Shown here is a 100-nucleotide sequence from Lysobacter sp. HDW10, a member of the family "Glycine riboswitch aptamer". Rfam links the family to the GO term glycine biosynthetic process. This family represents the bacterial glycine riboswitch. The organism belongs to Lysobacter, within Bacteria. A search with the family's covariance model found it, with a score of 67 bits.

RNA sequence: GCUCAACACUCUGGAGAGAUCGGCCGUGUAAAGCGCCGGCGCCGAAGGGGCAAGACGCGCAAGCGUUGAAACUCUCAGGCAAAAGGACAGAGGGGCACCC
Numbered sequence: 001g002c003u004c005a006a007c008a009c010u011c012u013g014g015a016g017a018g019a020u021c022g023g024c025c026g027u028g029u030a031a032a033g034c035g036c037c038g039g040c041g042c043c044g045a046a047g048g049g050g051c052a053a054g055a056c057g058c059g060c061a062a063g064c065g066u067u068g069a070a071a072c073u074c075u076c077a078g079g080c081a082a083a084a085g086g087a088c089a090g091a092g093g094g095g096c097a098c099c100c
Base pairs, nucleotide, nucleotide: 007094009092010091011090012089013088020039021038022037023036041080042079043078044076045075048074049073050072054067055066